[Rfam]
RNA sequence: GAAGCAGGGAUUGUGUGUAUCGGCGCUGUGCUACGAAAGUGCACUUUGAAUCCGAAAGAGUUCCCUGCUAUAUAACAUCUGGGGAAGAUGGGCAGUUGUGUUUCAUCCAUAGUUGAAACUUUUCAACAAUCAUCUUCCCCACAUUU
Numbered sequence: 001g002a003a004g005c006a007g008g009g010a011u012u013g014u015g016u017g018u019a020u021c022g023g024c025g026c027u028g029u030g031c032u033a034c035g036a037a038a039g040u041g042c043a044c045u046u047u048g049a050a051u052c053c054g055a056a057a058g059a060g061u062u063c064c065c066u067g068c069u070a071u072a073u074a075a076c077a078u079c080u081g082g083g084g085a086a087g088a089u090g091g092g093c094a095g096u097u098g099u100g101u102u103u104c105a106u107c108c109a110u111a112g113u114u115g116a117a118a119c120u121u122u123u124c125a126a127c128a129a130u131c132a133u134c135u136u137c138c139c140c141a142c143a144u145u146u
Stems, first nucleotide, its partner, number of pairs: 004068007015044006081140011095127004
RNA: small nucleolar RNA snoR135